[Rfam]
RNA: Eukaryotic small subunit ribosomal RNA, nucleotides 648 to 1178
RNA sequence: GGUUCGUAGUUGAACUGAGGGCCGUUGAGUGCGCUGUCCGGUCCACCCCGUUCGGGUGUGUGGCCUCAGCCUUGCGGUCCGUGAACACUCAGAAACAAGAAACACGGGAGUGGUACCUUUCCUGAUUCACGCAUGUCAUGCAUGCCAGGGGGCGUCCGUGAUUUUUACUGUGACUAAAGAAGUGUGACCAAAGCAGUCAUUCGACUUGAAUUAGAAAGCAUGGGAUAACAAAGGAGCAGCCAUUGGGCUACCGUUUCGGCUUUUGUUGGUUUUAGAGGUCCUUUGGAGAUUGUGGGGCUGCGCGACCGGCGUCAACCUCGCGGUUGGCGCUUUCGGCUUGCCGACUCGCGGCCUAGGAAUGAAGGAGAGUAGUCGGGGGAGAACGUACCCGAGCGUCAGAGGUGAAAUUCUUGGACCGCACGGAGACGAACUACAGCGAAGGCAUUCUUCAAGGAUACUUUCCUCAAUCAAGAACCAAAGUGUGGGGAUCAAAGAUGAUUAGAGACCAUUGUAGUCCACACUGCAAACGAU
Numbered sequence: 001g002g003u004u005c006g007u008a009g010u011u012g013a014a015c016u017g018a019g020g021g022c023c024g025u026u027g028a029g030u031g032c033g034c035u036g037u038c039c040g041g042u043c044c045a046c047c048c049c050g051u052u053c054g055g056g057u058g059u060g061u062g063g064c065c066u067c068a069g070c071c072u073u074g075c076g077g078u079c080c081g082u083g084a085a086c087a088c089u090c091a092g093a094a095a096c097a098a099g100a101a102a103c104a105c106g107g108g109a110g111u112g113g114u115a116c117c118u119u120u121c122c123u124g125a126u127u128c129a130c131g132c133a134u135g136u137c138a139u140g141c142a143u144g145c146c147a148g149g150g151g152g153c154g155u156c157c158g159u160g161a162u163u164u165u166u167a168c169u170g171u172g173a174c175u176a177a178a179g180a181a182g183u184g185u186g187a188c189c190a191a192a193g194c195a196g197u198c199a200u201u202c203g204a205c206u207u208g209a210a211u212u213a214g215a216a217a218g219c220a221u222g223g224g225a226u227a228a229c230a231a232a233g234g235a236g237c238a239g240c241c242a243u244u245g246g247g248c249u250a251c252c253g254u255u256u257c258g259g260c261u262u263u264u265g266u267u268g269g270u271u272u273u274a275g276a277g278g279u280c281c282u283u284u285g286g287a288g289a290u291u292g293u294g295g296g297g298c299u300g301c302g303c304g305a306c307c308g309g310c311g312u313c314a315a316c317c318u319c320g321c322g323g324u325u326g327g328c329g330c331u332u333u334c335g336g337c338u339u340g341c342c343g344a345c346u347c348g349c350g351g352c353c354u355a356g357g358a359a360u361g362a363a364g365g366a367g368a369g370u371a372g373u374c375g376g377g378g379g380a381g382a383a384c385g386u387a388c389c390c391g392a393g394c395g396u397c398a399g400a401g402g403u404g405a406a407a408u409u410c411u412u413g414g415a416c417c418g419c420a421c422g423g424a425g426a427c428g429a430a431c432u433a434c435a436g437c438g439a440a441g442g443c444a445u446u447c448u449u450c451a452a453g454g455a456u457a458c459u460u461u462c463c464u465c466a467a468u469c470a471a472g473a474a475c476c477a478a479a480g481u482g483u484g485g486g487g488a489u490c491a492a493a494g495a496u497g498a499u500u501a502g503a504g505a506c507c508a509u510u511g512u513a514g515u516c517c518a519c520a521c522u523g524c525a526a527a528c529g530a531u
Stems, first nucleotide, its partner, number of pairs: 002475004009468003365462004370457002373454002378450006384428002389423003393419003399410003436443002480521006490514001494510004